[Rfam]
RNA sequence: AAGAUUUUGCAAAUUCAACAUAUUGCAGGAAGUAUGUAGGCCU
Dot-bracket structure: ....((.(((((..........))))).)).............
RNA: ES036 (CssrF) sRNA